A member of the RNA family "U5 spliceosomal RNA" from Zapornia atra, 107 nucleotides long. Taxonomically the source falls in Zapornia (Eukaryota, Deuterostomia, Neoaves, Rallidae). It is annotated as a spliceosomal small nuclear RNA. The base pairs follow the family's consensus structure, which is taken from published work.

RNA sequence: AAACUCCGGUUUCUCUUCAGAUCGUAUAAACCUUUUGCCUUUUACUAAAGAUUUCCGUGGAGAGGAACAAGCACGAGUGUCUUUGGGCUUGUUCAGCCUGGAGAAGA
Number, nucleotide and partner (000 for none) at each position: 001a000002a000003a078004c077005u076006c075007c000008g000009g068010u067011u066012u065013c064014u063015c062016u061017u060018c059019a058020g000021a000022u000023c000024g000025u000026a000027u000028a054029a053030a052031c000032c050033u049034u048035u047036u000037g000038c000039c000040u000041u000042u000043u000044a000045c000046u000047a035048a034049a033050g032051a000052u030053u029054u028055c000056c000057g000058u019059g018060g017061a016062g015063a014064g013065g012066a011067a010068c009069a000070a000071g000072c000073a000074c000075g006076a005077g004078u003079g000080u000081c000082u000083u000084u000085g000086g000087g000088c000089u000090u000091g000092u000093u000094c000095a000096g000097c000098c000099u000100g000101g000102a000103g000104a000105a000106g000107a000